Source information: This 72-nucleotide RNA belongs to the Rfam family "tRNA". The family's RNA type in Rfam is transfer RNA.
[Rfam]
RNA sequence: GCGUUGGUGGUAUAGUGGUGAGCAUAGCUGCCUUCCAAGCAGUUGACCCGGGUUCGAUUCCCGGCCAACGCA
Dot-bracket structure: (((((((..((.(........).)).(((((.......)))))....(((((.......)))))))))))).